Notes:
This 134-nucleotide sequence from Scyliorhinus torazame belongs to the Rfam family "Small nucleolar RNA SNORA11". For this family Rfam cites "A novel experimental approach for systematic identification of box H/ACA snoRNAs from eukaryotes" (Gu et al., Nucleic Acids Res, 2005). It is annotated as an H/ACA-box small nucleolar RNA. The family has 35 seed sequences and 2,014 matches in Rfam 15.1. The base pairs follow the family's consensus structure, which was predicted with RNAalifold. The match comes from Rfam's covariance-model search (37 bits). U107 (SNORA11) is a member of the H/ACA class of snoRNAs that guide the sites of modification of uridines to pseudouridines.
RNA sequence: UUGGUGUGCACAGAGCAGCUGCUUUGGAGAUCCUGGUUAAGCCGUUUAUACCACACCGUACAGGAACCUGUUGUCAAACAUGCAGAUGGAUAACAGUCAAAUUCCAUUCUGCUUUAAAUGAUAACAAACAAUAU
Numbered sequence: 001u002u003g004g005u006g007u008g009c010a011c012a013g014a015g016c017a018g019c020u021g022c023u024u025u026g027g028a029g030a031u032c033c034u035g036g037u038u039a040a041g042c043c044g045u046u047u048a049u050a051c052c053a054c055a056c057c058g059u060a061c062a063g064g065a066a067c068c069u070g071u072u073g074u075c076a077a078a079c080a081u082g083c084a085g086a087u088g089g090a091u092a093a094c095a096g097u098c099a100a101a102u103u104c105c106a107u108u109c110u111g112c113u114u115u116a117a118a119u120g121a122u123a124a125c126a127a128a129c130a131a132u133a134u
Stems, first nucleotide, its partner, number of pairs: 002058007013047004018042003021037003071127004079120003084113002087106003